Shown here is a 562-nucleotide RNA from Uncinocarpus reesii, a member of the family "RNase MRP". NCBI's taxonomy places the organism under Eukaryota, Opisthokonta, saccharomyceta, Onygenaceae, Uncinocarpus reesii. The match comes from Rfam's covariance-model search (85 bits).
RNA sequence: UCCUCGCUCAAAGAAUCGCAUUCAAAGCUUACGCUCAGAGCCUUUCACUCUCAUCUGAGGUGAUUGCUCAUACCAUAUCUAGCUUUGGGAGAAAGUCCCCGGACGUCCUGCACAAUCUAUCGUGUCAGGCAAUGCGGAAACGCGCCGCCAUAAAAGCAAUUGAUAGCGGCUUACGUCUCUCCUUGCCUCUCGCCCUUUCAGACUCGACCCUAGCCGUAUGAGCCGUCUGUACUCUUCUCCGCUAUCUCGUCGCUCCUGUUGGACUAGGCUUCGUUGGGUUUACUUCGAGACCACCCUGCCGUUUCGGCGGAAGGGACAGGGACGAUGAUAUGAGUCCGCGCUCGAGGUAACCCUAUCAAAGUUGUUGGUCCUCUGGGUGCUUUGUGGAUACUGGGGAGGAGGAGGCUUCUAGGGGAACGGAUGGAGUCUGUUUGGUGAGGUUCAGGUAGGAGGUGAUUGCUCUUCGUCGUGGUUGGAUAGCUAUGCGAUUGUCUUGUCGGCCUGGGAUCGUAUGGUUCUAAGUUCGAUGGAUAACUCGAUGGGGCUUAUUCUUGAGGCGAGG
Numbered sequence: 001u002c003c004u005c006g007c008u009c010a011a012a013g014a015a016u017c018g019c020a021u022u023c024a025a026a027g028c029u030u031a032c033g034c035u036c037a038g039a040g041c042c043u044u045u046c047a048c049u050c051u052c053a054u055c056u057g058a059g060g061u062g063a064u065u066g067c068u069c070a071u072a073c074c075a076u077a078u079c080u081a082g083c084u085u086u087g088g089g090a091g092a093a094a095g096u097c098c099c100c101g102g103a104c105g106u107c108c109u110g111c112a113c114a115a116u117c118u119a120u121c122g123u124g125u126c127a128g129g130c131a132a133u134g135c136g137g138a139a140a141c142g143c144g145c146c147g148c149c150a151u152a153a154a155a156g157c158a159a160u161u162g163a164u165a166g167c168g169g170c171u172u173a174c175g176u177c178u179c180u181c182c183u184u185g186c187c188u189c190u191c192g193c194c195c196u197u198u199c200a201g202a203c204u205c206g207a208c209c210c211u212a213g214c215c216g217u218a219u220g221a222g223c224c225g226u227c228u229g230u231a232c233u234c235u236u237c238u239c240c241g242c243u244a245u246c247u248c249g250u251c252g253c254u255c256c257u258g259u260u261g262g263a264c265u266a267g268g269c270u271u272c273g274u275u276g277g278g279u280u281u282a283c284u285u286c287g288a289g290a291c292c293a294c295c296c297u298g299c300c301g302u303u304u305c306g307g308c309g310g311a312a313g314g315g316a317c318a319g320g321g322a323c324g325a326u327g328a329u330a331u332g333a334g335u336c337c338g339c340g341c342u343c344g345a346g347g348u349a350a351c352c353c354u355a356u357c358a359a360a361g362u363u364g365u366u367g368g369u370c371c372u373c374u375g376g377g378u379g380c381u382u383u384g385u386g387g388a389u390a391c392u393g394g395g396g397a398g399g400a401g402g403a404g405g406c407u408u409c410u411a412g413g414g415g416a417a418c419g420g421a422u423g424g425a426g427u428c429u430g431u432u433u434g435g436u437g438a439g440g441u442u443c444a445g446g447u448a449g450g451a452g453g454u455g456a457u458u459g460c461u462c463u464u465c466g467u468c469g470u471g472g473u474u475g476g477a478u479a480g481c482u483a484u485g486c487g488a489u490u491g492u493c494u495u496g497u498c499g500g501c502c503u504g505g506g507a508u509c510g511u512a513u514g515g516u517u518c519u520a521a522g523u524u525c526g527a528u529g530g531a532u533a534a535c536u537c538g539a540u541g542g543g544g545c546u547u548a549u550u551c552u553u554g555a556g557g558c559g560a561g562g
Stems, first nucleotide, its partner, number of pairs: 002562006008555004014490006022089001023087006038069004044063001093547003097544004133144004363444002370440004423433003492531003497526001